Background:
Small nucleolar RNA SNORA15: a 138-nucleotide sequence from Castor canadensis. Rfam 15.1 lists 974 matches to the family in 624 species. The base pairs follow the family's consensus structure, which was predicted with RNAfold. About the family: ACA15 is a member of the H/ACA class of snoRNA that guide the sites of modification of uridines to pseudouridines. The organism belongs to Castor, within Eukaryota. The match comes from Rfam's covariance-model search (95 bits).
RNA sequence: GCAUGGCAUAAUAUUGUGUACUUUAAUCAUUAGUUUACACAACCAGUCACCACGUAAAGGUAAAGUCUUCACUUUAAAAUGAGUACAGUGGUAUGUUAAGUUUUCCAUAGUAUGUCAUUAUUGAAAGUGAAUGCAGAU
Numbered sequence: 001g002c003a004u005g006g007c008a009u010a011a012u013a014u015u016g017u018g019u020a021c022u023u024u025a026a027u028c029a030u031u032a033g034u035u036u037a038c039a040c041a042a043c044c045a046g047u048c049a050c051c052a053c054g055u056a057a058a059g060g061u062a063a064a065g066u067c068u069u070c071a072c073u074u075u076a077a078a079a080u081g082a083g084u085a086c087a088g089u090g091g092u093a094u095g096u097u098a099a100g101u102u103u104u105c106c107a108u109a110g111u112a113u114g115u116c117a118u119u120a121u122u123g124a125a126a127g128u129g130a131a132u133g134c135a136g137a138u
Stems, first nucleotide, its partner, number of pairs: 001055002004052003014042006068131003073125005087119012